[Rfam]
RNA: TPP riboswitch aptamer (THI element)
RNA sequence: AGAAUGUGCUAGGGGAGCCUUCGUGCUGAGAUUUGAUAUUUCAUAAACCCUUAAAACCUGAUCCAGUUAAUUCUGGCGUAGGGAAGUGUAAUCUUUAUCUA
Numbered sequence: 001a002g003a004a005u006g007u008g009c010u011a012g013g014g015g016a017g018c019c020u021u022c023g024u025g026c027u028g029a030g031a032u033u034u035g036a037u038a039u040u041u042c043a044u045a046a047a048c049c050c051u052u053a054a055a056a057c058c059u060g061a062u063c064c065a066g067u068u069a070a071u072u073c074u075g076g077c078g079u080a081g082g083g084a085a086g087u088g089u090a091a092u093c094u095u096u097a098u099c100u101a
Base pairs, nucleotide, nucleotide: 006089007088008087009086010085011051012050013049014048017026018025034043035042036041057082058081059080060079063076064075065074066073